[Rfam]
This 255-nucleotide RNA from Novibacillus thermophilus belongs to the Rfam family "BsrG". The family's consensus secondary structure was predicted with WAR. Taxonomically the source falls in Novibacillus (Bacteria, Bacillota, Bacilli, Thermoactinomycetaceae). Rfam describes the family as follows. bsrE, bsrG and bsrH pair through intermolecular interactions with antisense sRNAs. They form type I toxin/antitoxin system that includes an mRNA encoding for a short, toxic peptide (bsrE, bsrG and bsrH) and an antitoxin that is comprised of an antisense RNA. bsrG encodes a 39-amino-acid toxin, and the 180 nucleotide antisense sRNA called SR4 acts as the antitoxin (they overlap by 123 nucleotides). It is annotated as a small RNA.
RNA sequence: UGCAAUAGGUCGGCUUCUCAAGGGAGGCGGCUCAUCCCCUGUAGAUAGAGAGGGGGUGAGGCGUAUGACCACUUUUCAGGUGCUGUCUCUUCUGAUCGCAUUUGGGAUGUUGGUCGCGUUCAUGAUGUCCAAAAAGGACUAAUGACCUCCCUUGAGCUUUAGCGGGCUUAGGAGGUCAUUGUCUGACUAACUGAGCCGCCCCUUUGGCGGGGCACGGUCUAUUGUGCGAUGACCGUAGGUGUGACAGCACCUGCG
Numbered sequence: 001u002g003c004a005a006u007a008g009g010u011c012g013g014c015u016u017c018u019c020a021a022g023g024g025a026g027g028c029g030g031c032u033c034a035u036c037c038c039c040u041g042u043a044g045a046u047a048g049a050g051a052g053g054g055g056g057u058g059a060g061g062c063g064u065a066u067g068a069c070c071a072c073u074u075u076u077c078a079g080g081u082g083c084u085g086u087c088u089c090u091u092c093u094g095a096u097c098g099c100a101u102u103u104g105g106g107a108u109g110u111u112g113g114u115c116g117c118g119u120u121c122a123u124g125a126u127g128u129c130c131a132a133a134a135a136g137g138a139c140u141a142a143u144g145a146c147c148u149c150c151c152u153u154g155a156g157c158u159u160u161a162g163c164g165g166g167c168u169u170a171g172g173a174g175g176u177c178a179u180u181g182u183c184u185g186a187c188u189a190a191c192u193g194a195g196c197c198g199c200c201c202c203u204u205u206g207g208c209g210g211g212g213c214a215c216g217g218u219c220u221a222u223u224g225u226g227c228g229a230u231g232a233c234c235g236u237a238g239g240u241g242u243g244a245c246a247g248c249a250c251c252u253g254c255g
Stems, first nucleotide, its partner, number of pairs: 001226003005222003009218001011198006017156008026146001028144001032059003036055005067129003072124001081094002104121003165183003199212004234255009